RNA sequence: GUUUCUAUUAGUAUAAAUUCGAUUUAAGAUAAGAAAAAUUUCCCAUUGGUAGCGAACGUUAUCCAUUAAGCGGGAAA
Numbered sequence: 001g002u003u004u005c006u007a008u009u010a011g012u013a014u015a016a017a018u019u020c021g022a023u024u025u026a027a028g029a030u031a032a033g034a035a036a037a038a039u040u041u042c043c044c045a046u047u048g049g050u051a052g053c054g055a056a057c058g059u060u061a062u063c064c065a066u067u068a069a070g071c072g073g074g075a076a077a
Stems, first nucleotide, its partner, number of pairs: 041075004045066002048063006
RNA: Plastid-rps12 3UTR RNA
Organism: Acleisanthes obtusa